[Rfam]
RNA: Small Cajal body-specific RNA 7
RNA sequence: GAGAAGUGAUGACACAGAGACAGUUGGGUGUGUUGGAUGGGGUGUGUGUGAGCAGGGGGGUGGGGGCUGUGUGAGGUGUGUGGGGGCUCCCCUGGGGGCACUGAUGGCAGUGCUGAGCCAGGAGUGCAUCUGAGGCGUGUUGGGCACCUCGGGGCCCCUCUGCAACACUGCCGGUGAUUAAAGCCCCAAAAAAGCCCACCAGGAGAGCCCCAGGCAGCCCAAGUGUCUCCAGGGUCACCAGAUCCUGUGCUCUGAUCUCA
Numbered sequence: 001g002a003g004a005a006g007u008g009a010u011g012a013c014a015c016a017g018a019g020a021c022a023g024u025u026g027g028g029u030g031u032g033u034u035g036g037a038u039g040g041g042g043u044g045u046g047u048g049u050g051a052g053c054a055g056g057g058g059g060g061u062g063g064g065g066g067c068u069g070u071g072u073g074a075g076g077u078g079u080g081u082g083g084g085g086g087c088u089c090c091c092c093u094g095g096g097g098g099c100a101c102u103g104a105u106g107g108c109a110g111u112g113c114u115g116a117g118c119c120a121g122g123a124g125u126g127c128a129u130c131u132g133a134g135g136c137g138u139g140u141u142g143g144g145c146a147c148c149u150c151g152g153g154g155c156c157c158c159u160c161u162g163c164a165a166c167a168c169u170g171c172c173g174g175u176g177a178u179u180a181a182a183g184c185c186c187c188a189a190a191a192a193a194g195c196c197c198a199c200c201a202g203g204a205g206a207g208c209c210c211c212a213g214g215c216a217g218c219c220c221a222a223g224u225g226u227c228u229c230c231a232g233g234g235u236c237a238c239c240a241g242a243u244c245c246u247g248u249g250c251u252c253u254g255a256u257c258u259c260a
Stems, first nucleotide, its partner, number of pairs: 001259004138167005143158002147154002